[Rfam]
RNA sequence: GCAUGGACGAAUUCUGCACUAGCUUUCCCCAGUAGCUAAUGCAGUCAGACACUAUGCCAGAAUAAAUUCCCUUUUCCCACUCUGAUUGGUGUGCUUUUUUAUAUGAGAAUGGACAUGCCCUUGGAAGUGGGAUACAUGA
Numbered sequence: 001g002c003a004u005g006g007a008c009g010a011a012u013u014c015u016g017c018a019c020u021a022g023c024u025u026u027c028c029c030c031a032g033u034a035g036c037u038a039a040u041g042c043a044g045u046c047a048g049a050c051a052c053u054a055u056g057c058c059a060g061a062a063u064a065a066a067u068u069c070c071c072u073u074u075u076c077c078c079a080c081u082c083u084g085a086u087u088g089g090u091g092u093g094c095u096u097u098u099u100u101a102u103a104u105g106a107g108a109a110u111g112g113a114c115a116u117g118c119c120c121u122u123g124g125a126a127g128u129g130g131g132a133u134a135c136a137u138g139a
Stems, first nucleotide, its partner, number of pairs: 001057006014044005068132004073127005085122001088119006095112002

Shown here is a 139-nucleotide RNA sequence from Chionis minor, a member of the family "Small nucleolar RNA SNORA15". Its family is annotated with RNA processing and nucleolus in the Gene Ontology. Rfam describes the family as follows. ACA15 is a member of the H/ACA class of snoRNA that guide the sites of modification of uridines to pseudouridines. The family has 22 seed sequences and 974 matches in Rfam 15.1. On this family, see Huttenhofer et al., EMBO J 2001: "RNomics: an experimental approach that identifies 201 candidates for novel, small, non-messenger RNAs in mouse". A search with the family's covariance model found it, with a score of 63 bits. It is annotated as an H/ACA-box small nucleolar RNA.